[Rfam]
RNA: EcpR1
RNA sequence: UAACCCUACGGGGUGCUCAGGUCCGCCGCAUCUCCUGGGUCCGUGGGGUUCGGCCGGCGGCGGGACGCGAUCGGGAGGCCUCCCCGUGCGUCUCCCGCCGGCCACCCG
Numbered sequence: 001u002a003a004c005c006c007u008a009c010g011g012g013g014u015g016c017u018c019a020g021g022u023c024c025g026c027c028g029c030a031u032c033u034c035c036u037g038g039g040u041c042c043g044u045g046g047g048g049u050u051c052g053g054c055c056g057g058c059g060g061c062g063g064g065a066c067g068c069g070a071u072c073g074g075g076a077g078g079c080c081u082c083c084c085c086g087u088g089c090g091u092c093u094c095c096c097g098c099c100g101g102c103c104a105c106c107c108g
Base pairs, nucleotide, nucleotide: 003049004048005047006046007045008044009043010042016039017038018037019036020035021034052103053102054101055100056099057098058097059096060095062093